[Rfam]
RNA sequence: GAGGCGGUAUCGAUAUGAAUCGAACUGCACUUAUGUUACAUGGUUUAUUUGUAUUAAACAUUACUUACUGUAUAUCGUGAGUACGUUGGAUUCUGCUCUGAGCCGAAAGGACCGAGACAGAAGG
Numbered sequence: 001g002a003g004g005c006g007g008u009a010u011c012g013a014u015a016u017g018a019a020u021c022g023a024a025c026u027g028c029a030c031u032u033a034u035g036u037u038a039c040a041u042g043g044u045u046u047a048u049u050u051g052u053a054u055u056a057a058a059c060a061u062u063a064c065u066u067a068c069u070g071u072a073u074a075u076c077g078u079g080a081g082u083a084c085g086u087u088g089g090a091u092u093c094u095g096c097u098c099u100g101a102g103c104c105g106a107a108a109g110g111a112c113c114g115a116g117a118c119a120g121a122a123g124g
Base pairs, nucleotide, nucleotide: 001032002031003030004028005027006026007025008024010023011022012021013020014019093120094119095118096116097115098114100112103110104109
The record is a 124-nucleotide RNA from Paenibacillus crassostreae, which matches "pan motif" in Rfam. By type it is a cis-regulatory element. A search with the family's covariance model found it, with a score of 48 bits.